[Rfam]
RNA sequence: AAACUAAAGGAGCAAUAGCAAACUUCUUAUUAUAUCAAGAAGUUUAUUAUUGCCCCUUUA
Numbered sequence: 001a002a003a004c005u006a007a008a009g010g011a012g013c014a015a016u017a018g019c020a021a022a023c024u025u026c027u028u029a030u031u032a033u034a035u036c037a038a039g040a041a042g043u044u045u046a047u048u049a050u051u052g053c054c055c056c057u058u059u060a
Stems, first nucleotide, its partner, number of pairs: 006059005012053006021044002024041005

The record is a 60-nucleotide RNA sequence, which matches "Plastid-psbA-4 3UTR RNA" in Rfam. A reference for the family is Richter et al. (2023), "Retrograde signaling in plants: A critical review focusing on the GUN pathway and beyond", Plant Commun. About the family: Plastid psbA-4 is a non-coding RNA (ncRNA) present in plastids. It was identified in inverted repeat sequences in the 3 prime untranslate region (3UTR) of photosystem II quinone-binding protein (psbA). Rfam's curators put it in the seed alignment. By type it is a cis-regulatory element.